[Rfam]
RNA: Small nucleolar RNA SNORA20
Nucleotides: 136
Base pairs, nucleotide, nucleotide: 003058004057005056006055007054008053015045016044017043018042019041022037023036069130071128072127073126074125075124079121080120081119088115090113091112092111093110094109095108096107
Number, partner (000 for none) and nucleotide at each position: 001000u002000u003058u004057c005056c006055c007054a008053u009000u010000u011000a012000u013000u014000u015045g016044c017043u018042g019041c020000c021000a022037u023036a024000c025000g026000a027000u028000c029000u030000u031000a032000g033000u034000a035000g036023u037022a038000u039000g040000a041019g042018c043017a044016g045015u046000u047000a048000u049000a050000c051000g052000c053008g054007u055006g056005g057004g058003a059000u060000a061000a062000a063000g064000u065000a066000u067000a068000c069130u070000a071128a072127g073126c074125c075124c076000a077000c078000u079121g080120u081119a082000a083000a084000a085000u086000c087000a088115g089000u090113g091112g092111u093110g094109a095108a096107a097000a098000c099000c100000a101000c102000c103000a104000g105000u106000g107096u108095u109094u110093c111092a112091c113090c114000u115088u116000u117000u118000u119081u120080g121079c122000u123000g124075g125074g126073g127072c128071u129000a130069g131000a132000c133000a134000u135000c136000u